[Rfam]
RNA sequence: GUUGCUUCCUACUGGUGAACUCUCCCUUGUAAUUAACAGUGGGAGAAAUUCAUGUUUCCGAAGCAUAAAUUAAUUGAUGUUAAUGCCAGUAUUAAACAGCACGGUGUUUAGUUUCCAGCGCCGUGUUACCUGACUCCUGGUAUUUGU
Number, nucleotide and partner (000 for none) at each position: 001g000002u000003u065004g064005c063006u062007u061008c060009c000010u000011a000012c000013u000014g000015g000016u052017g051018a050019a049020c000021u046022c045023u044024c043025c042026c000027u000028u000029g000030u000031a000032a000033u000034u000035a000036a000037c000038a000039g000040u000041g000042g025043g024044a023045g022046a021047a000048a000049u019050u018051c017052a016053u000054g000055u000056u000057u000058c000059c000060g008061a007062a006063g005064c004065a003066u000067a000068a000069a000070u000071u000072a000073a000074u000075u000076g000077a000078u000079g000080u000081u000082a000083a000084u000085g141086c140087c139088a138089g137090u000091a135092u000093u000094a000095a000096a000097c000098a127099g126100c125101a000102c123103g122104g121105u120106g119107u000108u000109u000110a000111g000112u000113u000114u000115c000116c000117a000118g000119c106120g105121c104122c103123g102124u000125g100126u099127u098128a000129c000130c000131u000132g000133a000134c000135u091136c000137c089138u088139g087140g086141u085142a000143u000144u000145u000146g000147u000
The record is a 147-nucleotide sequence from Salix viminalis, which matches "small nucleolar RNA snoR137" in Rfam. Taxonomically the source falls in Salix (Eukaryota, Euphyllophyta, Magnoliopsida, eudicotyledons). On this family, see Chen and Wu, Nucleic Acids Res 2009: "Mining small RNA sequencing data: a new approach to identify small nucleolar RNAs in Arabidopsis". Its family is annotated with RNA processing and nucleolus in the Gene Ontology. A search with the family's covariance model found it, with a score of 126 bits.